[Rfam]
Background:
Rfam assigns this 225-nucleotide RNA to the family "Actinobacteria sRNA Ms_IGR-5". It is annotated as a small RNA.
RNA sequence: UGAACCGGAAGGAGGUGGUCCCACGUUGAUGACGUACAGGACUCGUGAGGUGGCUGGCCGCUAGGCCGCCAUUCCAACACGUCGGACCGUGGUCCGUUCCUCCCGGGAACGGCGGUCGGGCAAGUAGUGGACAGCCAUCCGAUUCCCGGGCCGCCGACCAUCGUCCAGUCGGCCCUUCACCGAGACGCAGCGUCAGGUGCAGGAACAGCCCGGGAGUUGUCCUUC
Numbered sequence: 001u002g003a004a005c006c007g008g009a010a011g012g013a014g015g016u017g018g019u020c021c022c023a024c025g026u027u028g029a030u031g032a033c034g035u036a037c038a039g040g041a042c043u044c045g046u047g048a049g050g051u052g053g054c055u056g057g058c059c060g061c062u063a064g065g066c067c068g069c070c071a072u073u074c075c076a077a078c079a080c081g082u083c084g085g086a087c088c089g090u091g092g093u094c095c096g097u098u099c100c101u102c103c104c105g106g107g108a109a110c111g112g113c114g115g116u117c118g119g120g121c122a123a124g125u126a127g128u129g130g131a132c133a134g135c136c137a138u139c140c141g142a143u144u145c146c147c148g149g150g151c152c153g154c155c156g157a158c159c160a161u162c163g164u165c166c167a168g169u170c171g172g173c174c175c176u177u178c179a180c181c182g183a184g185a186c187g188c189a190g191c192g193u194c195a196g197g198u199g200c201a202g203g204a205a206c207a208g209c210c211c212g213g214g215a216g217u218u219g220u221c222c223u224u225c
Stems, first nucleotide, its partner, number of pairs: 014058001016056004060121003064117002067114004072109003140219012153173006
Dot-bracket structure: .............(.((((.................................)))).).(((.((.((((.(((................................))).)))).)).)))..................((((((((((((.((((((.........))))))..................................))))))))))))......